[Rfam]
Rfam assigns this 105-nucleotide sequence from Clostridium polyendosporum to the family "SAM riboswitch aptamer (S box leader)". It scores 90 bits against the family's covariance model. Pairs were carried over by alignment from the consensus structure, which is taken from published work.

RNA sequence: CUCUUAUCCAGAGAGGUGGAGGGAAAAGGGCCCGAUGAAACCCGGCAACCGGUGUAUAAACACAAUGGUGCCAAUUCCAGCAGAUAUAUUUCUGCAAGAUAAGAG
Numbered sequence: 001c002u003c004u005u006a007u008c009c010a011g012a013g014a015g016g017u018g019g020a021g022g023g024a025a026a027a028g029g030g031c032c033c034g035a036u037g038a039a040a041c042c043c044g045g046c047a048a049c050c051g052g053u054g055u056a057u058a059a060a061c062a063c064a065a066u067g068g069u070g071c072c073a074a075u076u077c078c079a080g081c082a083g084a085u086a087u088a089u090u091u092c093u094g095c096a097a098g099a100u101a102a103g104a105g
Base pairs, nucleotide, nucleotide: 001105002104003103004102005101006100007099008098013043015042016041017040021033022032023031029078030077044072045071046070047069049068050067052063053062054061076097081094082093083092084091